[Rfam]
The family of this 97-nucleotide RNA sequence is "skipping-rope RNA". Rfam classes the family as a small RNA.
RNA sequence: GUUAUCUGAGGUGGAAGAUUUCGUACCCGUCCACACGCCGAUGGUUUGACAGAGGAAACCCGAGAGAUGCAGGAGCAUGGUACGCCUGCCAGAUAAC
Number, nucleotide and partner (000 for none) at each position: 001g097002u096003u095004a094005u093006c092007u091008g090009a000010g000011g034012u033013g032014g031015a030016a000017g000018a000019u000020u000021u000022c000023g083024u082025a081026c080027c079028c000029g000030u015031c014032c013033a012034c011035a000036c064037g045038c044039c043040g000041a000042u000043g039044g038045u037046u000047u000048g000049a000050c000051a000052g000053a000054g000055g000056a000057a000058a000059c000060c000061c000062g000063a000064g036065a000066g000067a000068u000069g089070c088071a087072g086073g085074a000075g000076c000077a000078u000079g027080g026081u025082a024083c023084g000085c073086c072087u071088g070089c069090c008091a007092g006093a005094u004095a003096a002097c001